MIR159 microRNA precursor family: a 194-nucleotide sequence from Nelumbo nucifera. A reference for the family is Jones-Rhoades and Bartel (2004), "Computational identification of plant microRNAs and their targets, including a stress-induced miRNA", Mol Cell. Gene Ontology terms of the family: RISC complex and miRNA-mediated post-transcriptional gene silencing. The match comes from Rfam's covariance-model search (97 bits).
RNA sequence: AACAGAAAAAGGGAGCUCCCUUCAGUCCAAGCAUAGAGGAGGAAGAAUGGCAAUUAUCUCCCGCAUCAUUCACACAUUCACAGUAGUAAAAAAUAUCCCCUUUCUACUGAGUGUUUGAAUGAAUGAGUCGGCAGCUAAUUCAACACCUUAGCCCAUCCAUGAGUGGACUGAAGAAAGCUCUCUCAAGCCGUUUC
Numbered sequence: 001a002a003c004a005g006a007a008a009a010a011g012g013g014a015g016c017u018c019c020c021u022u023c024a025g026u027c028c029a030a031g032c033a034u035a036g037a038g039g040a041g042g043a044a045g046a047a048u049g050g051c052a053a054u055u056a057u058c059u060c061c062c063g064c065a066u067c068a069u070u071c072a073c074a075c076a077u078u079c080a081c082a083g084u085a086g087u088a089a090a091a092a093a094u095a096u097c098c099c100c101u102u103u104c105u106a107c108u109g110a111g112u113g114u115u116u117g118a119a120u121g122a123a124u125g126a127g128u129c130g131g132c133a134g135c136u137a138a139u140u141c142a143a144c145a146c147c148u149u150a151g152c153c154c155a156u157c158c159a160u161g162a163g164u165g166g167a168c169u170g171a172a173g174a175a176a177g178c179u180c181u182c183u184c185a186a187g188c189c190g191u192u193u194c
Base pairs, nucleotide, nucleotide: 013180014179015178016177017176020173023170024169025168026167027166028165029164036157058134059133061131062130063129067125068124069123070122075117